[Rfam]
RNA: Bacteroides sRNA BTnc005
RNA sequence: AAAAGUAAGAGUGUAACAGGAAGAAAGUUGCAGCAUAUUUGCGGUGAAUUAUUCGGUGUCAUAGGAGUAGAGGCUUUUGGUAAGAUGCUGAUAAUGAGUAGGGGAAAUAAAAGUUAAUCGUUCCCUGUCUCUCCGCAGAGCUCCAAAGACAAAAAGGAUUCAAAGUAUGACAAAUCCCAUAAAACCUUGAUUUUACGGGAUUUUU
Number, nucleotide and partner (000 for none) at each position: 001a000002a000003a000004a000005g000006u000007a000008a000009g000010a000011g000012u032013g031014u030015a029016a028017c027018a000019g000020g000021a000022a000023g000024a000025a000026a000027g017028u016029u015030g014031c013032a012033g000034c000035a000036u000037a000038u000039u000040u000041g136042c135043g134044g133045u000046g000047a000048a095049u094050u093051a092052u091053u000054c090055g089056g088057u087058g086059u085060c084061a000062u000063a000064g000065g077066a076067g075068u000069a000070g000071a000072g000073g000074c000075u067076u066077u065078u000079g000080g000081u000082a000083a000084g060085a059086u058087g057088c056089u055090g054091a052092u051093a050094a049095u048096g131097a130098g129099u127100a126101g000102g124103g123104g122105a121106a000107a000108u000109a000110a000111a000112a000113g000114u000115u000116a000117a000118u000119c000120g000121u105122u104123c103124c102125c000126u100127g099128u000129c098130u097131c096132u000133c044134c043135g042136c041137a000138g000139a000140g000141c000142u000143c000144c000145a000146a000147a000148g000149a000150c000151a000152a000153a000154a000155a000156g000157g000158a000159u000160u000161c000162a000163a000164a000165g000166u000167a000168u000169g000170a000171c000172a000173a000174a000175u200176c199177c198178c197179a000180u195181a194182a193183a192184a191185c000186c000187u000188u000189g000190a000191u184192u183193u182194u181195a180196c000197g178198g177199g176200a175201u000202u000203u000204u000205u000